[Rfam]
RNA: ZMP/ZTP riboswitch aptamer (pfl RNA motif)
RNA sequence: CAGUUCCGAUGUAACUGGCGACACAGGUGGACUUAACCACGGUGGAGCAUCGGAAUAUCGGCCGGUCGCCUGGGCAAAGAGC
Dot-bracket structure: ..((((((((((..(.[[[[[.....((((......))))...)..))))))))))....(((..]]]]]..))).......